[Rfam]
RNA sequence: CAACGGCCGGGUCCGCUGAGUCUGCAGCACUUAGACUACGUGUUCCUCUGCAGCAGGGACAGGCCCAGCAGCCGCUC
Numbered sequence: 001c002a003a004c005g006g007c008c009g010g011g012u013c014c015g016c017u018g019a020g021u022c023u024g025c026a027g028c029a030c031u032u033a034g035a036c037u038a039c040g041u042g043u044u045c046c047u048c049u050g051c052a053g054c055a056g057g058g059a060c061a062g063g064c065c066c067a068g069c070a071g072c073c074g075c076u077c
Base pairs, nucleotide, nucleotide: 002076004074005073006072007071009066010065011064012063013062016034017033018032019031020030021029043059044058045057046056047055
Dot-bracket structure: .(.((((.(((((..((((((.......))))))........(((((.......)))))..)))))....)))).).
bZIP non canonical Hac1/Xbp1 intron: a 77-nucleotide sequence from Podarcis muralis. About the family: bZIP intron RNA is a non-canonical intron that was first reported in HAC1 gene in yeast and XBP1 gene in Metazoa. A reference for the family is Hooks and Griffiths-Jones (2011), "Conserved RNA structures in the non-canonical Hac1/Xbp1 intron", RNA Biol. Lineage of the source: Eukaryota > Laterata > Lacertibaenia > Lacertinae > Podarcis. Rfam classes the family as a small RNA.